[Rfam]
RNA: UnaL2 LINE 3' element
Organism: Coregonus sp. 'balchen'
RNA sequence: AGAAAGGGCAAAUGUAUGUCGCUUUGGAUAAAGGCGUCUGCUAAAUGGCAUAUA
Dot-bracket structure: ............((((...((((((.....))))))..))).)...........
Numbered sequence: 001a002g003a004a005a006g007g008g009c010a011a012a013u014g015u016a017u018g019u020c021g022c023u024u025u026g027g028a029u030a031a032a033g034g035c036g037u038c039u040g041c042u043a044a045a046u047g048g049c050a051u052a053u054a
Stems, first nucleotide, its partner, number of pairs: 013043001014041003020036006